Rfam assigns this 243-nucleotide sequence from Phtheirospermum japonicum to the family "RNase MRP". Taxonomically the source falls in Phtheirospermum (Eukaryota, Streptophyta, Tracheophyta, Lamiales). Rfam links the family to the GO terms ribonuclease MRP activity, rRNA processing and ribonuclease MRP complex.

RNA sequence: AAACCACCGGAAGAAGUGAAUGGGCCGUGGAUCCCUUGUUGGAUCUGGGCCCAGGAAAGUCCCCGGGUCACAUUCCGCAGAGAUGCGGGCUCGGAAACGAGUCAACUCCCCAGUAUAGGGCGGCUGGGCUGAGACGUGUGUGGAGCCUAGUUGGCCGCCUUGCUGGGAACAAUUUGGCCAAUAUCAACAGUUAUUCACUCUGUUACUUUAAACAGAACUGAACGGGGCUUACUUCUUGUGGUU
Numbered sequence: 001a002a003a004c005c006a007c008c009g010g011a012a013g014a015a016g017u018g019a020a021u022g023g024g025c026c027g028u029g030g031a032u033c034c035c036u037u038g039u040u041g042g043a044u045c046u047g048g049g050c051c052c053a054g055g056a057a058a059g060u061c062c063c064c065g066g067g068u069c070a071c072a073u074u075c076c077g078c079a080g081a082g083a084u085g086c087g088g089g090c091u092c093g094g095a096a097a098c099g100a101g102u103c104a105a106c107u108c109c110c111c112a113g114u115a116u117a118g119g120g121c122g123g124c125u126g127g128g129c130u131g132a133g134a135c136g137u138g139u140g141u142g143g144a145g146c147c148u149a150g151u152u153g154g155c156c157g158c159c160u161u162g163c164u165g166g167g168a169a170c171a172a173u174u175u176g177g178c179c180a181a182u183a184u185c186a187a188c189a190g191u192u193a194u195u196c197a198c199u200c201u202g203u204u205a206c207u208u209u210a211a212a213c214a215g216a217a218c219u220g221a222a223c224g225g226g227g228c229u230u231a232c233u234u235c236u237u238g239u240g241g242u243u
Base pairs, nucleotide, nucleotide: 002243003242004241005240006239007238009236010235015199016198017197018196019195021053022052023051024050025049026048030045031044032043033042034041057230058229059228061227062226063225064224076087077086078085079084088103089102090101091100092099093098107169109167110166111165112164113163114162118160119159120158121157127152128151129150136146137145139143202213203212204211